The record is a 62-nucleotide RNA sequence from Xenopus tropicalis, which matches "Small nucleolar RNA Z39" in Rfam.
RNA sequence: GUGCAAAUGAUGAUAAAUUAACAGUAUGACAAAUAAUGAUACUGUAAACGCUUUCUGAUGCA
Numbered sequence: 001g002u003g004c005a006a007a008u009g010a011u012g013a014u015a016a017a018u019u020a021a022c023a024g025u026a027u028g029a030c031a032a033a034u035a036a037u038g039a040u041a042c043u044g045u046a047a048a049c050g051c052u053u054u055c056u057g058a059u060g061c062a
Stems, first nucleotide, its partner, number of pairs: 002062004012054002015052001022044006
The family's RNA type in Rfam is C/D-box small nucleolar RNA.
Its family is annotated with RNA processing and nucleolus in the Gene Ontology.